[Rfam]
The family of this 182-nucleotide sequence is "malK-I RNA".
Nucleotides: 182
Stems, first nucleotide, its partner, number of pairs: 006042005012036007064079004070170006080104008089096002107133005113128003136163007146155003
Number, partner (000 for none) and nucleotide at each position: 001000c002000c003000c004000c005000a006042c007041c008040g009039g010038u011000a012036c013035g014034g015033u016032g017031c018030a019000c020000u021000c022000c023000a024000c025000u026000u027000u028000c029000u030018u031017g032016u033015a034014c035013c036012g037000c038010a039009c040008c041007g042006g043000c044000a045000a046000a047000u048000g049000a050000a051000a052000a053000g054000g055000a056000g057000g058000a059000a060000u061000a062000a063000a064079c065078c066077g067076c068000u069000g070170u071169g072168g073167c074166u075165g076067g077066c078065g079064g080104u081103g082102c083101g084100g085099c086098a087097a088000u089096g090095u091000g092000g093000a094000g095090a096089c097087u098086u099085g100084c101083c102082g103081u104080a105000a106000a107133g108132c109131g110130c111129g112000a113128g114127g115126g116000a117000c118000a119000u120000u121000u122000u123000c124000c125000g126115c127114c128113c129111c130110g131109c132108g133107u134000g135000a136163g137162g138161c139160u140159g141158u142157c143000g144000u145000u146155u147154g148153c149000g150000g151000a152000g153148g154147c155146a156000g157142g158141a159140c160139a161138g162137c163136u164000a165075c166074a167073g168072u169071c170070a171000a172000g173000a174000c175000g176000u177000a178000u179000g180000g181000c182000a